[Rfam]
RNA sequence: UAUCAGGUGGUUCGUAACCAUCCCACCUAAAAAAACUAGGAGGUC
Numbered sequence: 001u002a003u004c005a006g007g008u009g010g011u012u013c014g015u016a017a018c019c020a021u022c023c024c025a026c027c028u029a030a031a032a033a034a035a036c037u038a039g040g041a042g043g044u045c
Stems, first nucleotide, its partner, number of pairs: 006027005015038002
Shown here is a 45-nucleotide sequence from Ligilactobacillus pobuzihii, a member of the family "PreQ1 (pre queuosine) riboswitch aptamer". It scores 44 bits against the family's covariance model. The source organism's lineage runs through Bacteria, Bacillati, Bacilli, Lactobacillaceae and Ligilactobacillus.